[Rfam]
RNA: Bacterial RNase P class A
Organism: Thalassovita taeanensis
RNA sequence: GCGGAGGGCUGGAUGGCCGCGGGGGGCAACCUUCGAGGAAAGUCCGGACUCCACAAGAUAAGGGUGCCGGGUAACGCCCGGCCGGGGAAACCCGAGGGAAAGCGCCACAGAAAACAAACCGCCUUCGUGUCCCUCGCGGGAUACUGGGGUAAGGGUGAAACGGUGGGGUAAGAGCCCACCGCAGGACUGGCAACAGGACUGGCACGGCAAGCCCCACCCGGAGCAAUGCCGAAUAGGGAUCUCGCGCGGGGCCGGUCGGGCAACCGAUACCGCCGCAGGGCACGUCUUGGCCCAGAGAUCCGGGUUGGCAGCUGUAGGCGGGUUGGUAACAGCCCGCUCAGAGGAAUGGUCAUCCAGAGGGGGCAACCCCUUGGACAGAAUCCGGCUUACAGGCCCUCCGCGCAU
Numbered sequence: 001g002c003g004g005a006g007g008g009c010u011g012g013a014u015g016g017c018c019g020c021g022g023g024g025g026g027c028a029a030c031c032u033u034c035g036a037g038g039a040a041a042g043u044c045c046g047g048a049c050u051c052c053a054c055a056a057g058a059u060a061a062g063g064g065u066g067c068c069g070g071g072u073a074a075c076g077c078c079c080g081g082c083c084g085g086g087g088a089a090a091c092c093c094g095a096g097g098g099a100a101a102g103c104g105c106c107a108c109a110g111a112a113a114a115c116a117a118a119c120c121g122c123c124u125u126c127g128u129g130u131c132c133c134u135c136g137c138g139g140g141a142u143a144c145u146g147g148g149g150u151a152a153g154g155g156u157g158a159a160a161c162g163g164u165g166g167g168g169u170a171a172g173a174g175c176c177c178a179c180c181g182c183a184g185g186a187c188u189g190g191c192a193a194c195a196g197g198a199c200u201g202g203c204a205c206g207g208c209a210a211g212c213c214c215c216a217c218c219c220g221g222a223g224c225a226a227u228g229c230c231g232a233a234u235a236g237g238g239a240u241c242u243c244g245c246g247c248g249g250g251g252c253c254g255g256u257c258g259g260g261c262a263a264c265c266g267a268u269a270c271c272g273c274c275g276c277a278g279g280g281c282a283c284g285u286c287u288u289g290g291c292c293c294a295g296a297g298a299u300c301c302g303g304g305u306u307g308g309c310a311g312c313u314g315u316a317g318g319c320g321g322g323u324u325g326g327u328a329a330c331a332g333c334c335c336g337c338u339c340a341g342a343g344g345a346a347u348g349g350u351c352a353u354c355c356a357g358a359g360g361g362g363g364c365a366a367c368c369c370c371u372u373g374g375a376c377a378g379a380a381u382c383c384g385g386c387u388u389a390c391a392g393g394c395c396c397u398c399c400g401c402g403c404a405u
Base pairs, nucleotide, nucleotide: 001401002400003399004398005397006396007395008394009393010392011390012354013353014352015351016350017349018348020035021034022033023032024031025030040388041387042386044385045384046383047382048381049223050222051221052220057287062219063218064217065216066215067081068080069079070078071077082096083094084093085092086091097214098213102212103211104208105207106206119154120153121150122149123148124147125146127144128143129142130141131140132139133138162180163179164178165177166176167175181203182201183200184199187196188195189194227310228309229308230307237301238300239299240298241297242296278293279292280291281290318337319336320335321334322333323332324331325330